[Rfam]
Nucleotides: 373
Stems, first nucleotide, its partner, number of pairs: 003369003008311007017082005091359005097239004107120005121136006137235004141230003159218007313347003317343002
Number, partner (000 for none) and nucleotide at each position: 001000g002000u003369c004368a005367g006000a007000g008311c009310u010309c011308g012307g013306a014305a015000a016000u017082c018081u019080c020079u021078g022000c023000g024000u025000c026000c027000c028000g029000a030000c031000g032000g033000u034000g035000u036000u037000c038000c039000c040000g041000g042000u043000g044000u045000c046000u047000c048000g049000c050000u051000c052000a053000a054000u055000g056000c057000g058000g059000u060000g061000c062000c063000g064000c065000g066000a067000u068000c069000a070000c071000a072000g073000a074000c075000a076000g077000g078021c079020a080019g081018a082017g083000g084000g085000g086000a087000g088000g089000g090000u091359c092358u093357g094356a095355g096000a097239u098238g099237c100236c101000g102000c103000u104000u105000u106000c107120u108119g109118a110117c111116c112000g113000a114000g115000a116111g117110g118109u119108c120107a121136c122135a123134u124133g125132c126131c127000a128000c129000g130000a131126g132125g133124u134123g135122u136121g137235g138234g139233u140232c141230g142229c143228c144000a145000a146000c147000c148000a149000g150000a151000a152000a153000a154000a155000u156000g157000a158000g159218c160217a161216g162215a163214u164213g165212u166000g167000g168000g169000a170000a171000c172000a173000a174000g175000u176000g177000c178000a179000c180000c181000c182000c183000g184000c185000a186000g187000c188000u189000u190000u191000g192000c193000g194000g195000a196000u197000g198000a199000g200000u201000g202000c203000c204000g205000u206000g207000u208000u209000u210000c211000c212165g213164c214163g215162u216161c217160u218159g219000a220000u221000u222000g223000a224000a225000a226000g227000a228143g229142g230141c231000u232140g233139a234138c235137u236100g237099g238098c239097a240000c241000g242000g243000g244000c245000g246000c247000c248000a249000g250000g251000a252000u253000u254000g255000g256000c257000a258000g259000g260000a261000g262000c263000u264000u265000u266000u267000c268000u269000g270000c271000u272000c273000u274000c275000g276000g277000a278000u279000c280000c281000u282000g283000u284000c285000g286000u287000u288000u289000a290000a291000g292000g293000c294000u295000u296000g297000a298000g299000u300000u301000c302000a303000a304000u305014u306013u307012u308011c309010g310009a311008g312000a313347c314346g315345u316000c317343u318342g319000c320000u321000u322000u323000u324000g325000c326000a327000c328000c329000c330000u331000c332000a333000g334000u335000g336000c337000a338000a339000u340000c341000g342318c343317a344000c345315a346314c347313g348000a349000a350000c351000u352000u353000g354000a355095u356094u357093c358092a359091g360000a361000c362000u363000a364000c365000u366000c367005c368004u369003g370000c371000c372000a373000c